[Rfam]
RNA sequence: UUGCCCAAUGAUUAUAGCAAGACGCGUUAUUAUGAGGACUAAUGCUGGAACUCUUUUUCCUUCUUCCUCCUCCUCCUUCUUUGUCCCUUCCUCUUUCACCUUACCCCUCACUUUCUUUAGGGUAUCCAGCGUCCUAUGAGCAAGACUGAGAUAUAUGAGGGCAA
Numbered sequence: 001u002u003g004c005c006c007a008a009u010g011a012u013u014a015u016a017g018c019a020a021g022a023c024g025c026g027u028u029a030u031u032a033u034g035a036g037g038a039c040u041a042a043u044g045c046u047g048g049a050a051c052u053c054u055u056u057u058u059c060c061u062u063c064u065u066c067c068u069c070c071u072c073c074u075c076c077u078u079c080u081u082u083g084u085c086c087c088u089u090c091c092u093c094u095u096u097c098a099c100c101u102u103a104c105c106c107c108u109c110a111c112u113u114u115c116u117u118u119a120g121g122g123u124a125u126c127c128a129g130c131g132u133c134c135u136a137u138g139a140g141c142a143a144g145a146c147u148g149a150g151a152u153a154u155a156u157g158a159g160g161g162c163a164a
Base pairs, nucleotide, nucleotide: 001164002163003162004161005160006159035054036053037052040049
Background: Small nucleolar RNA SNORD97: a 164-nucleotide RNA sequence from Sula dactylatra. It scores 106 bits against the family's covariance model. NCBI's taxonomy places the organism under Eukaryota, Chordata, Vertebrata, Neoaves, Sula.